[Rfam]
A member of the RNA family "Small nucleolar RNA U54" from Eragrostis curvula, 86 nucleotides long. The family's consensus secondary structure was predicted with PFOLD. A search with the family's covariance model found it, with a score of 67 bits. U54 is a C/D box small nucleolar RNA, which acts as a methylation guide for 18S ribosomal RNA in plants. The source organism's lineage runs through Eukaryota, Viridiplantae, Streptophytina, Mesangiospermae and Eragrostis. The family has 21 seed sequences and 614 matches in Rfam 15.1. By type it is a C/D-box small nucleolar RNA. For this family Rfam cites "The high diversity of snoRNAs in plants: identification and comparative study of 120 snoRNA genes from Oryza sativa" (Chen et al., Nucleic Acids Res, 2003).

RNA sequence: UGCUCAAUUAUUUAAGACAAUGUUUAAUCAUGGUAAUAUACGCUAUUCUGAAUCACAUUAUGAUGUCAUAAACAUUGAUGAGAGCA
Numbered sequence: 001u002g003c004u005c006a007a008u009u010a011u012u013u014a015a016g017a018c019a020a021u022g023u024u025u026a027a028u029c030a031u032g033g034u035a036a037u038a039u040a041c042g043c044u045a046u047u048c049u050g051a052a053u054c055a056c057a058u059u060a061u062g063a064u065g066u067c068a069u070a071a072a073c074a075u076u077g078a079u080g081a082g083a084g085c086a
Stems, first nucleotide, its partner, number of pairs: 001086005